[Rfam]
RNA: Bacterial small signal recognition particle RNA
RNA sequence: CUCGGCUCCCCACGUGGCGCCAUCUUUCAAAACUCCCCCAGGGCCGGAAGGCAGCAAGGGUAUGAGAGCUCUGGCGGGUGCGUGGGGAGUCCCUUAU
Numbered sequence: 001c002u003c004g005g006c007u008c009c010c011c012a013c014g015u016g017g018c019g020c021c022a023u024c025u026u027u028c029a030a031a032a033c034u035c036c037c038c039c040a041g042g043g044c045c046g047g048a049a050g051g052c053a054g055c056a057a058g059g060g061u062a063u064g065a066g067a068g069c070u071c072u073g074g075c076g077g078g079u080g081c082g083u084g085g086g087g088a089g090u091c092c093c094u095u096a097u
Stems, first nucleotide, its partner, number of pairs: 004091011015078001018076005024068006035060003043052003